[Rfam]
RNA sequence: GCGGGACUGGUUCGAGAACUCCCAGUAUAAAAAACUAAGGAUUU
Numbered sequence: 001g002c003g004g005g006a007c008u009g010g011u012u013c014g015a016g017a018a019c020u021c022c023c024a025g026u027a028u029a030a031a032a033a034a035c036u037a038a039g040g041a042u043u044u
Stems, first nucleotide, its partner, number of pairs: 006026005016036001
Notes
A member of the RNA family "PreQ1 (pre queuosine) riboswitch aptamer" from Clostridium sp. BL8, 44 nucleotides long. Gene Ontology term of the family: queuosine biosynthetic process. A search with the family's covariance model found it, with a score of 51 bits. From the family's description: This family is a bacterial riboswitch that binds to the metabolite preQ1, an intermediate in the biosynthesis of the modified nucleoside queuosine from GTP. One example of this riboswitch is located in the leader of the Bacillus subtilis ykvJKLM (queCDEF) operon which encodes four genes necessary for queuosine production. PreQ1 binding to the riboswitch aptamer is thought to induce premature transcription termination within the leader to down-regulate expression of these genes.